[Rfam]
Shown here is an 80-nucleotide RNA sequence from Eptesicus fuscus, a member of the family "mir-9186 microRNA precursor family".
The family has 31 seed sequences and 143 matches in Rfam 15.1.
The source organism's lineage runs through Eukaryota, Eumetazoa, Theria, Boreoeutheria and Eptesicus.

RNA sequence: CAGGGGGAGGUGAGUGGCAUCACUGGUACUGAGGUAAUGGCUGCUCACAGUACCAGACAUGCCGCCCUCCUCCCCCUACA
Numbered sequence: 001c002a003g004g005g006g007g008a009g010g011u012g013a014g015u016g017g018c019a020u021c022a023c024u025g026g027u028a029c030u031g032a033g034g035u036a037a038u039g040g041c042u043g044c045u046c047a048c049a050g051u052a053c054c055a056g057a058c059a060u061g062c063c064g065c066c067c068u069c070c071u072c073c074c075c076c077u078a079c080a
Base pairs, nucleotide, nucleotide: 002077003076004075005074007072008071009070010069014065015064016063017062018061019060020059023056024055025054026053027052028051029050030049031048